[Rfam]
RNA sequence: GGCUUCGGCCGCGAGGGACGUCAAAACCCAAGGGAUGAAGCGGGGAGAAAGAACCACACCAAACCCCACCCCUCCCGCCCGUCGCGCAGCGUCACUCCCGCGAGUGAAUAUGCCCAACUGGACUGGAUUUGAGGUGGGUUGCGUGCCCUACGCUCAGCGCGACAACCGCAGAAAAACUUCGGCCCCCGCCGGGACGGCAAUCCCAGUGCGAGGGCCUGACCACCCAGGAAGAGAACAGCUUCCCG
Numbered sequence: 001g002g003c004u005u006c007g008g009c010c011g012c013g014a015g016g017g018a019c020g021u022c023a024a025a026a027c028c029c030a031a032g033g034g035a036u037g038a039a040g041c042g043g044g045g046a047g048a049a050a051g052a053a054c055c056a057c058a059c060c061a062a063a064c065c066c067c068a069c070c071c072c073u074c075c076c077g078c079c080c081g082u083c084g085c086g087c088a089g090c091g092u093c094a095c096u097c098c099c100g101c102g103a104g105u106g107a108a109u110a111u112g113c114c115c116a117a118c119u120g121g122a123c124u125g126g127a128u129u130u131g132a133g134g135u136g137g138g139u140u141g142c143g144u145g146c147c148c149u150a151c152g153c154u155c156a157g158c159g160c161g162a163c164a165a166c167c168g169c170a171g172a173a174a175a176a177c178u179u180c181g182g183c184c185c186c187c188g189c190c191g192g193g194a195c196g197g198c199a200a201u202c203c204c205a206g207u208g209c210g211a212g213g214g215c216c217u218g219a220c221c222a223c224c225c226a227g228g229a230a231g232a233g234a235a236c237a238g239c240u241u242c243c244c245g
Stems, first nucleotide, its partner, number of pairs: 007224002011221001017079001019077002092107006123157004181216005187210003191204004227243005

Rfam assigns this 245-nucleotide sequence from Streptomyces fuscichromogenes to the family "Streptomyces sRNA 4677". NCBI's taxonomy places the organism under Bacteria, Actinomycetes, Kitasatosporales, Streptomycetaceae, Streptomyces. Pairs were carried over by alignment from the consensus structure. Located in the intergenic region between anti-sigma factor SCO4677 gene and a putative regulatory protein gene SCO4676. scr4677 expression requires the SCO4677 activity and scr4677 sRNA itself seem to affect the levels of the SCO4676-associated transcripts.